A member of the RNA family "ASpks TB sRNA" from Phytohabitans houttuyneae, 69 nucleotides long. The family's consensus secondary structure is taken from published work.
[Rfam]
RNA sequence: CUUGACCGAGCCGAGCCACAGUGGCCGCUCCCGGUCCGGGCCGAAAGUGGCCAGCAGCGCGUGCGCCUC
Number, nucleotide and partner (000 for none) at each position: 001c000002u000003u000004g000005a000006c000007c000008g000009a000010g000011c000012c000013g000014a000015g025016c024017c023018a000019c000020a000021g000022u000023g017024g016025c015026c000027g000028c065029u000030c063031c000032c059033g058034g000035u000036c000037c054038g000039g052040g000041c050042c049043g048044a000045a000046a000047g000048u043049g042050g041051c000052c039053a000054g037055c000056a000057g000058c033059g032060c000061g000062u000063g030064c000065g028066c000067c000068u000069c000
The organism belongs to Phytohabitans, within Bacteria. On this family, see Arnvig and Young, Mol Microbiol 2009: "Identification of small RNAs in Mycobacterium tuberculosis". It is annotated as an antisense RNA.